[Rfam]
Nucleotides: 061
Stems, first nucleotide, its partner, number of pairs: 011040003021035005048060004
Number, partner (000 for none) and nucleotide at each position: 001000g002000a003000g004000g005000a006000a007000g008000g009000a010000a011040g012039g013038c014000u015000a016000a017000a018000u019000g020000c021035g022034c023033a024032a025031c026000g027000u028000c029000c030000u031025g032024u033023u034022g035021c036000a037000g038013g039012c040011u041000c042000a043000g044000g045000c046000a047000u048060c049059g050058a051057c052000g053000u054000c055000c056000u057051g058050u059049c060048g061000c

Rfam assigns this 61-nucleotide RNA from Bacillus sp. FJAT-49711 to the family "Bacillaceae-1 RNA". Lineage of the source: Bacteria > Bacillati > Caryophanales > Bacillaceae > Bacillus. Pairs were carried over by alignment from the consensus structure, which is taken from published work.